[Rfam]
RNA sequence: GGACAUACGUUUCCGCUACCGAAGACAGCAGGUACCUACGGGUUCAAUUGCAAGAGCAGCCGGCCGAGGUGGUAAGCAAAGCGAUUCUUUUGCGGCCCCUGAGUCUUCAUGGCACAGGGGCCGUUUCCUUUUCGUUGU
Numbered sequence: 001g002g003a004c005a006u007a008c009g010u011u012u013c014c015g016c017u018a019c020c021g022a023a024g025a026c027a028g029c030a031g032g033u034a035c036c037u038a039c040g041g042g043u044u045c046a047a048u049u050g051c052a053a054g055a056g057c058a059g060c061c062g063g064c065c066g067a068g069g070u071g072g073u074a075a076g077c078a079a080a081g082c083g084a085u086u087c088u089u090u091u092g093c094g095g096c097c098c099c100u101g102a103g104u105c106u107u108c109a110u111g112g113c114a115c116a117g118g119g120g121c122c123g124u125u126u127c128c129u130u131u132u133c134g135u136u137g138u
Stems, first nucleotide, its partner, number of pairs: 028064002031061003034043003093123009
Ribosomal protein L10 leader: a 138-nucleotide sequence from Slackia exigua. This family is a putative r-protein leader autoregulatory structure found in B. subtilis and other low-GC Gram-positive bacteria. It is located in the 5' untranslated regions of mRNAs encoding ribosomal proteins L10 and L12 (rplJ-rplL). A Rho-independent transcription terminator structure that is probably involved in regulation is included at the 3' end. The literature on the family includes a 2015 paper in Nucleic Acids Res by Yakhnin et al., "Ribosomal protein L10(L12)4 autoregulates expression of the Bacillus subtilis rplJL operon by a transcription attenuation mechanism". Pairs were carried over by alignment from the consensus structure, which was predicted with CMfinder. Gene Ontology term of the family: regulation of gene expression.